[Rfam]
Small nucleolar RNA SNORA61: a 120-nucleotide RNA sequence from Orycteropus afer. Its family is annotated with nucleolus and RNA processing in the Gene Ontology. Rfam's curators write: ACA61 is a member of the H/ACA class of snoRNA that guide the sites of modification of uridines to pseudouridines. The family's RNA type in Rfam is H/ACA-box small nucleolar RNA.

RNA sequence: ACCCUCCAGUUCCCUUUCCCAUCGGAUCUGAACACUGGUCUGGGUGGUCGUAAGAGGAGGAAAAGUAACAUUGAAACUGACCUCAGUGCUUUCUAGCACAUGGGCUAGUUUCAGACAACU
Numbered sequence: 001a002c003c004c005u006c007c008a009g010u011u012c013c014c015u016u017u018c019c020c021a022u023c024g025g026a027u028c029u030g031a032a033c034a035c036u037g038g039u040c041u042g043g044g045u046g047g048u049c050g051u052a053a054g055a056g057g058a059g060g061a062a063a064a065g066u067a068a069c070a071u072u073g074a075a076a077c078u079g080a081c082c083u084c085a086g087u088g089c090u091u092u093c094u095a096g097c098a099c100a101u102g103g104g105c106u107a108g109u110u111u112c113a114g115a116c117a118a119c120u
Base pairs, nucleotide, nucleotide: 003060004059005058006057007056019047020046021045022044023043025040026039027038028037077108078107079106081104082103083102